[Rfam]
Description
Hepatitis C virus stem-loop SL1412 RNA: a 48-nucleotide RNA. It is annotated as a cis-regulatory element. Rfam's curators write: HCV_SL1412 is a stem-loop in the coding region of the C (core) gene.

RNA sequence: AUGGGCGUCGCCUACUAUUCCAUGGUGGCGAACUGGGCGAAGGUCUUG
Numbered sequence: 001a002u003g004g005g006c007g008u009c010g011c012c013u014a015c016u017a018u019u020c021c022a023u024g025g026u027g028g029c030g031a032a033c034u035g036g037g038c039g040a041a042g043g044u045c046u047u048g
Stems, first nucleotide, its partner, number of pairs: 006043001008041001010038005018031002021028001